Rfam assigns this 135-nucleotide sequence from Cutibacterium avidum to the family "FMN riboswitch aptamer (RFN element)". The organism belongs to Cutibacterium avidum, within Bacteria. Pairs were carried over by alignment from the consensus structure, which is taken from published work. The match comes from Rfam's covariance-model search (93 bits).
RNA sequence: ACACGUGCUCCGGGGUCGGUGAAAGUCCGAACCGGCGGUGACAGUCCGCGACCCGAGCCGUCCUCGUGACGGUGAGGUUGAACCGGUGGAAUUCCGGUACCGACGGUUAAAGUCCGGAUGGGAGGCAGCACGGCA
Numbered sequence: 001a002c003a004c005g006u007g008c009u010c011c012g013g014g015g016u017c018g019g020u021g022a023a024a025g026u027c028c029g030a031a032c033c034g035g036c037g038g039u040g041a042c043a044g045u046c047c048g049c050g051a052c053c054c055g056a057g058c059c060g061u062c063c064u065c066g067u068g069a070c071g072g073u074g075a076g077g078u079u080g081a082a083c084c085g086g087u088g089g090a091a092u093u094c095c096g097g098u099a100c101c102g103a104c105g106g107u108u109a110a111a112g113u114c115c116g117g118a119u120g121g122g123a124g125g126c127a128g129c130a131c132g133g134c135a
Stems, first nucleotide, its partner, number of pairs: 004132006010124001017029003031113002033102002035049004044100002053077002082098005104116003